[Rfam]
RNA: Small nucleolar RNA U109
Organism: Collichthys lucidus
RNA sequence: UUGCAUGUUUUGGCCCUGGGCCGGUGUUGGCCUCUCGAUUUUCUGUAGAGAGGACAAGUACAAACAUGCUAGAUUGACAUUUUGGGGAGUUAACAGGGCCACCAGUCUCUCGAGGUCAGACUGAGUGGUAGUAUAAAACUCCAACAUUU
Numbered sequence: 001u002u003g004c005a006u007g008u009u010u011u012g013g014c015c016c017u018g019g020g021c022c023g024g025u026g027u028u029g030g031c032c033u034c035u036c037g038a039u040u041u042u043c044u045g046u047a048g049a050g051a052g053g054a055c056a057a058g059u060a061c062a063a064a065c066a067u068g069c070u071a072g073a074u075u076g077a078c079a080u081u082u083u084g085g086g087g088a089g090u091u092a093a094c095a096g097g098g099c100c101a102c103c104a105g106u107c108u109c110u111c112g113a114g115g116u117c118a119g120a121c122u123g124a125g126u127g128g129u130a131g132u133a134u135a136a137a138a139c140u141c142c143a144a145c146a147u148u149u
Stems, first nucleotide, its partner, number of pairs: 003069006028056002031053005086142004098129002102125001103123006